RNA sequence: CCCCUUCCAUUUCGCUUUCCCCGCACCUAUAUUCGCCCCGUCAGCUUGCCUGACUAUGGCGAUAAACGGCCGAUGAAAUAAGCCAUUCGGACCCGGGGGCGGUACCCGGCGCCUCCACCAGAAGCCGCCGUCGUCGAGCGACGGUUUCUGAUGGGGGCGAAAUAGGAUCGACGAGGGUGUAAAGAUCGGACUUUUGCCCGGCAUUGUACCACCGUUAUCGGGCUACAAUUAUAGUUGCCAACGACAACUAUGCGGAAGCACGUCUCGCUGCUUAAUGCGGCGCGAUAGCUUCAAUUCAAGCCCUAGGCCGUCGCAGGUCUAGGCGGGGUCCGGAGGCACCUGGCAACAGAAGCCUCCACU
Numbered sequence: 001c002c003c004c005u006u007c008c009a010u011u012u013c014g015c016u017u018u019c020c021c022c023g024c025a026c027c028u029a030u031a032u033u034c035g036c037c038c039c040g041u042c043a044g045c046u047u048g049c050c051u052g053a054c055u056a057u058g059g060c061g062a063u064a065a066a067c068g069g070c071c072g073a074u075g076a077a078a079u080a081a082g083c084c085a086u087u088c089g090g091a092c093c094c095g096g097g098g099g100c101g102g103u104a105c106c107c108g109g110c111g112c113c114u115c116c117a118c119c120a121g122a123a124g125c126c127g128c129c130g131u132c133g134u135c136g137a138g139c140g141a142c143g144g145u146u147u148c149u150g151a152u153g154g155g156g157g158c159g160a161a162a163u164a165g166g167a168u169c170g171a172c173g174a175g176g177g178u179g180u181a182a183a184g185a186u187c188g189g190a191c192u193u194u195u196g197c198c199c200g201g202c203a204u205u206g207u208a209c210c211a212c213c214g215u216u217a218u219c220g221g222g223c224u225a226c227a228a229u230u231a232u233a234g235u236u237g238c239c240a241a242c243g244a245c246a247a248c249u250a251u252g253c254g255g256a257a258g259c260a261c262g263u264c265u266c267g268c269u270g271c272u273u274a275a276u277g278c279g280g281c282g283c284g285a286u287a288g289c290u291u292c293a294a295u296u297c298a299a300g301c302c303c304u305a306g307g308c309c310g311u312c313g314c315a316g317g318u319c320u321a322g323g324c325g326g327g328g329u330c331c332g333g334a335g336g337c338a339c340c341u342g343g344c345a346a347c348a349g350a351a352g353c354c355u356c357c358a359c360u
Base pairs, nucleotide, nucleotide: 040054041053042052043051044050058198059197060196061195062194068191070189071188072187073186074185083177084176087174088173089172093109094108095107096106097105110159111158112157113156114155115154116153199214200213201212204225206223209221210220326341327340328339329338332357333356334355335354336353337352

The family of this 360-nucleotide sequence from Aquamicrobium sp. LC103 is "Alphaproteobacteria transfer-messenger RNA". It is annotated as a non-coding RNA gene. The base pairs follow the family's consensus structure, which is taken from published work. From the family's description: Bacterial tmRNA, also known as 10Sa RNA or SsrA, is named for its dual tRNA and mRNA-like properties.